[Rfam]
RNA: DABA-DC-AT RNA
RNA sequence: GUAAUCUCGGAGGGUAGUAUUUUCUGGGGGAUACGCGCAUUGCUCAUUCAGGCUGAGUGUACAAUGCGUAGGGUAGGUAUCAACAUACUUUUGUGUUGAUAGACGGGAUACUGAUGCUGUUACUAGCAUAUAAAUAGGAAACCCAACA
Numbered sequence: 001g002u003a004a005u006c007u008c009g010g011a012g013g014g015u016a017g018u019a020u021u022u023u024c025u026g027g028g029g030g031a032u033a034c035g036c037g038c039a040u041u042g043c044u045c046a047u048u049c050a051g052g053c054u055g056a057g058u059g060u061a062c063a064a065u066g067c068g069u070a071g072g073g074u075a076g077g078u079a080u081c082a083a084c085a086u087a088c089u090u091u092u093g094u095g096u097u098g099a100u101a102g103a104c105g106g107g108a109u110a111c112u113g114a115u116g117c118u119g120u121u122a123c124u125a126g127c128a129u130a131u132a133a134a135u136a137g138g139a140a141a142c143c144c145a146a147c148a
Stems, first nucleotide, its partner, number of pairs: 006028006035069008045059002078101010115128005